[Rfam]
RNA sequence: GUCUCUGAGGAUGAUGAAAAAAUAUAACUUUCGUUCUUCCGAAUUUUCGAUGAGGAAAAUACAUGGAGACGACCUGAACUGAAGAGGC
Numbered sequence: 001g002u003c004u005c006u007g008a009g010g011a012u013g014a015u016g017a018a019a020a021a022a023u024a025u026a027a028c029u030u031u032c033g034u035u036c037u038u039c040c041g042a043a044u045u046u047u048c049g050a051u052g053a054g055g056a057a058a059a060u061a062c063a064u065g066g067a068g069a070c071g072a073c074c075u076g077a078a079c080u081g082a083a084g085a086g087g088c
Stems, first nucleotide, its partner, number of pairs: 003086004